[Rfam]
The family of this 189-nucleotide sequence from Clostridium ljungdahlii is "M-box riboswitch aptamer (ykoK leader)".
RNA sequence: UAAUAACAUUGUUAGGUGAGAUUACUGUACAAGAUAUACGCUACUGCCCAGAAAUGUCGAGAGACGCCAAUGGGUGAGCAGGUACUACCGGAUUAAGGUUUUACUUAAUGUAGCUGACAACAUUCAUAGAAAUAUGAAUGUCUAUGAUCUAAGCUUUACAGAGUCAAAACUCAACGAGUGAAGAUGUGC
Numbered sequence: 001u002a003a004u005a006a007c008a009u010u011g012u013u014a015g016g017u018g019a020g021a022u023u024a025c026u027g028u029a030c031a032a033g034a035u036a037u038a039c040g041c042u043a044c045u046g047c048c049c050a051g052a053a054a055u056g057u058c059g060a061g062a063g064a065c066g067c068c069a070a071u072g073g074g075u076g077a078g079c080a081g082g083u084a085c086u087a088c089c090g091g092a093u094u095a096a097g098g099u100u101u102u103a104c105u106u107a108a109u110g111u112a113g114c115u116g117a118c119a120a121c122a123u124u125c126a127u128a129g130a131a132a133u134a135u136g137a138a139u140g141u142c143u144a145u146g147a148u149c150u151a152a153g154c155u156u157u158a159c160a161g162a163g164u165c166a167a168a169a170c171u172c173a174a175c176g177a178g179u180g181a182a183g184a185u186g187u188g189c
Stems, first nucleotide, its partner, number of pairs: 005185001007183001009181002011175002013096001015171003020165003025161005031156003040114005046075005055066004081105004087099003116149002
Rfam's curators write: M-box riboswitch, also know as ykoK leader is described as a metaloregulatory RNA that sense divalent metals and function as a genetic control element of genes related to divalent metal transport in bacteria. It was first reported upstream of the B.subtilis ykoK gene and genes with related functions in other bacteria.
The source organism's lineage runs through Bacteria, Bacillati, Eubacteriales, Clostridiaceae and Clostridium.